A member of the RNA family "Y RNA-like" from Adhaeretor mobilis, 197 nucleotides long. The family's consensus secondary structure is taken from published work. In Deinococcus radiodurans Rsr is tethered via Y RNA to the exoribonuclease PNPase and channels single-stranded RNA into the PNPase cavity. Rsr and Y RNA enhance degradation of structured RNAs by PNPase. This role could be conserved, as Rsr and ncRNAs called YrlA and YrlB (Y RNA like) also associate with PNPase in an evolutionary distant bacterium Salmonella Typhimurium. The family has 6 seed sequences and 124 matches in Rfam 15.1. For this family Rfam cites "Bacterial noncoding Y RNAs are widespread and mimic tRNAs" (Chen et al., RNA, 2014). A search with the family's covariance model found it, with a score of 75 bits. The family's RNA type in Rfam is small RNA. Lineage of the source: Bacteria > Pseudomonadati > Pirellulales > Lacipirellulaceae > Adhaeretor.
[Rfam]
RNA sequence: GUGACGAAUGCGGAUGGAACUACAUGGUUUAGAUCCCGAGGUCGUGGGUUCGAAUCCCACCGGCUCCACUUGUUAUCAGGCGGCUUGACUUGGCGUGGCCAAGAUCUUGCUCGCGAGGAUAAUGACCUGAUAGAAAGGGGCCGUAGCUCAGUUUGGUAGAGCGCGUAGAACGUUUCAUCAAUACUUGUCGUCACGUU
Numbered sequence: 001g002u003g004a005c006g007a008a009u010g011c012g013g014a015u016g017g018a019a020c021u022a023c024a025u026g027g028u029u030u031a032g033a034u035c036c037c038g039a040g041g042u043c044g045u046g047g048g049u050u051c052g053a054a055u056c057c058c059a060c061c062g063g064c065u066c067c068a069c070u071u072g073u074u075a076u077c078a079g080g081c082g083g084c085u086u087g088a089c090u091u092g093g094c095g096u097g098g099c100c101a102a103g104a105u106c107u108u109g110c111u112c113g114c115g116a117g118g119a120u121a122a123u124g125a126c127c128u129g130a131u132a133g134a135a136a137g138g139g140g141c142c143g144u145a146g147c148u149c150a151g152u153u154u155g156g157u158a159g160a161g162c163g164c165g166u167a168g169a170a171c172g173u174u175u176c177a178u179c180a181a182u183a184c185u186u187g188u189c190g191u192c193a194c195g196u197u
Stems, first nucleotide, its partner, number of pairs: 002193006013179007023168001037165002044060005051156001061143006146162004